The family of this 92-nucleotide sequence from Agrobacterium fabrum is "Rhizobiales sRNA Atu_Ti1". A reference for the family is Wilms et al. (2012), "Deep sequencing uncovers numerous small RNAs on all four replicons of the plant pathogen Agrobacterium tumefaciens", RNA Biol. NCBI's taxonomy places the organism under Bacteria, Rhizobiaceae, Agrobacterium, Agrobacterium tumefaciens complex, Agrobacterium fabrum. Rfam classes the family as a small RNA. Rfam's curators put it in the seed alignment.
RNA sequence: GUCCACGUAGCGGCGGACCAGAACCAGAAGCCUCCCAGGGCAAUGGCAGCAGCCGGCCAGUAUCGCGAUGUCAUCAUCGCGAGGCCGGCUGU
Numbered sequence: 001g002u003c004c005a006c007g008u009a010g011c012g013g014c015g016g017a018c019c020a021g022a023a024c025c026a027g028a029a030g031c032c033u034c035c036c037a038g039g040g041c042a043a044u045g046g047c048a049g050c051a052g053c054c055g056g057c058c059a060g061u062a063u064c065g066c067g068a069u070g071u072c073a074u075c076a077u078c079g080c081g082a083g084g085c086c087g088g089c090u091g092u
Base pairs, nucleotide, nucleotide: 001018002017003016004015024046025045026044031039032038049092050091051090052089053088054087055086056085057084058083063082064081065080066079067078068077069076